The record is a 320-nucleotide sequence from Lachnellula suecica, which matches "Group I catalytic intron" in Rfam.

[Rfam]
RNA sequence: UAACAAGCGUUGUAAUGCAGCCUCUGCUCUGAAAAGUAGACCCUAACGGGUUGUGGUUUGCCCUUAUCUACUAGUCGCUUUGGCGGCAACACCUUCCAACUGUCGGGGACCUCCUAAAGCUCUUACUACUAAGCCUGUAUCCGAAAGGAGCAGGUGGCCAGGUUUGUUCCCUGGGUAAAGUAAUAAUGUAAGAGAUAUUGCAAUGGAAAAUCCGCAUCCAAGCCCCUACGGCCUACCGGCUAUGGGGAAGGUUCAGAGACUAAACGGAGGUGGGUAGUCUACUACCUAAGAUAUAGUCCGUCUUGGAGUGAAAACUCUCA
Numbered sequence: 001u002a003a004c005a006a007g008c009g010u011u012g013u014a015a016u017g018c019a020g021c022c023u024c025u026g027c028u029c030u031g032a033a034a035a036g037u038a039g040a041c042c043c044u045a046a047c048g049g050g051u052u053g054u055g056g057u058u059u060g061c062c063c064u065u066a067u068c069u070a071c072u073a074g075u076c077g078c079u080u081u082g083g084c085g086g087c088a089a090c091a092c093c094u095u096c097c098a099a100c101u102g103u104c105g106g107g108g109a110c111c112u113c114c115u116a117a118a119g120c121u122c123u124u125a126c127u128a129c130u131a132a133g134c135c136u137g138u139a140u141c142c143g144a145a146a147g148g149a150g151c152a153g154g155u156g157g158c159c160a161g162g163u164u165u166g167u168u169c170c171c172u173g174g175g176u177a178a179a180g181u182a183a184u185a186a187u188g189u190a191a192g193a194g195a196u197a198u199u200g201c202a203a204u205g206g207a208a209a210a211u212c213c214g215c216a217u218c219c220a221a222g223c224c225c226c227u228a229c230g231g232c233c234u235a236c237c238g239g240c241u242a243u244g245g246g247g248a249a250g251g252u253u254c255a256g257a258g259a260c261u262a263a264a265c266g267g268a269g270g271u272g273g274g275u276a277g278u279c280u281a282c283u284a285c286c287u288a289a290g291a292u293a294u295a296g297u298c299c300g301u302c303u304u305g306g307a308g309u310g311a312a313a314a315c316u317c318u319c320a
Base pairs, nucleotide, nucleotide: 005025007023009021010020011019012018013017090272091271092270093269094268096266101216102215104214105213106212107211112207113206114205218251223246224245225244231240232239233238256299258298259297260296261295262294274285275284276283277282305318306317307316308315309314

From the family's description: Group I catalytic introns are large self-splicing ribozymes. They catalyse their own excision from mRNA, tRNA and rRNA precursors in a wide range of organisms. The core secondary structure consists of 9 paired regions (P1-P9).
For this family Rfam cites "Crystal structure of a group I ribozyme domain: principles of RNA packing" (Cate et al., Science, 1996).
The base pairs follow the family's consensus structure, which is taken from published work.
A search with the family's covariance model found it, with a score of 68 bits.
Taxonomically the source falls in Lachnellula (Eukaryota, saccharomyceta, leotiomyceta, Helotiales).